A member of the RNA family "Guanidine-II riboswitch aptamer (mini-ykkC)" from Labrenzia sp. THAF82, 47 nucleotides long. Gene Ontology term of the family: regulation of gene expression. The base pairs follow the family's consensus structure, which is taken from published work.
[Rfam]
RNA sequence: GCCGGAGGACGACCUCCAACUUUCAUCAAAUCAACGGGACGGCCCGG
Numbered sequence: 001g002c003c004g005g006a007g008g009a010c011g012a013c014c015u016c017c018a019a020c021u022u023u024c025a026u027c028a029a030a031u032c033a034a035c036g037g038g039a040c041g042g043c044c045c046g047g
Base pairs, nucleotide, nucleotide: 001020004017005016006015007014008013035046036045037044038043